The family of this 63-nucleotide sequence from Nothoprocta ornata is "Small nucleolar RNA Z39".
The family's RNA type in Rfam is C/D-box small nucleolar RNA.
The literature on the family includes a 2003 paper in Nucleic Acids Res by Chen et al., "The high diversity of snoRNAs in plants: identification and comparative study of 120 snoRNA genes from Oryza sativa".
The family has 5 seed sequences and 935 matches in Rfam 15.1.

RNA sequence: GUACAGAUGAUGACUACUGCAGUAUGAGGGGACACAGUGAUACUGUAAACGCUUUCUGAUGUA
Numbered sequence: 001g002u003a004c005a006g007a008u009g010a011u012g013a014c015u016a017c018u019g020c021a022g023u024a025u026g027a028g029g030g031g032a033c034a035c036a037g038u039g040a041u042a043c044u045g046u047a048a049a050c051g052c053u054u055u056c057u058g059a060u061g062u063a
Stems, first nucleotide, its partner, number of pairs: 002063004012055002017051001020045006
Dot-bracket structure: .((((......((...(..((((((..............)))))).....)..))....))))